[Rfam]
RNA sequence: GAUAGCCGUGAUUUACGGCUGGAUUCAGUGUGGGUGAUGUGAUAACGCGAACCGUCUGCGUUGUUGAAUCAUAAAGCCCUCCCCAAUACAUGGCUUUAGCCGCCAGCAACAGCGUACCUGCCCCCAAAAACAGCAGGUGAUGCCCCAGAAUCAACCCCAAUUGCUUGGAAUUAUCCCA
Number, nucleotide and partner (000 for none) at each position: 001g000002a000003u000004a000005g000006c000007c000008g000009u000010g000011a000012u000013u000014u000015a000016c000017g000018g000019c000020u000021g000022g000023a000024u000025u000026c000027a000028g000029u000030g000031u000032g000033g000034g000035u000036g000037a000038u000039g000040u000041g000042a000043u000044a000045a000046c000047g000048c000049g000050a000051a000052c000053c000054g000055u000056c000057u000058g000059c000060g000061u000062u000063g000064u000065u000066g000067a000068a000069u000070c000071a000072u000073a000074a000075a000076g000077c000078c000079c000080u000081c000082c000083c000084c000085a000086a000087u000088a000089c000090a000091u000092g000093g000094c000095u000096u000097u000098a000099g000100c000101c000102g000103c000104c000105a000106g000107c000108a000109a000110c000111a000112g000113c000114g000115u000116a000117c000118c000119u000120g000121c000122c000123c000124c000125c000126a000127a000128a000129a000130a000131c000132a000133g000134c000135a000136g175137g174138u173139g172140a171141u170142g000143c000144c000145c168146c167147a166148g165149a000150a000151u000152c000153a000154a000155c000156c000157c000158c000159a000160a000161u000162u000163g000164c000165u148166u147167g146168g145169a000170a141171u140172u139173a138174u137175c136176c000177c000178a000
Annotation
A member of the RNA family "Antisense RNA which regulates isiA expression" from Drouetiella hepatica, 178 nucleotides long. Pairs were carried over by alignment from the consensus structure, which was predicted with PFOLD. It scores 95 bits against the family's covariance model. NCBI's taxonomy places the organism under Bacteria, Bacillati, Oculatellales, Drouetiella, Drouetiella hepatica.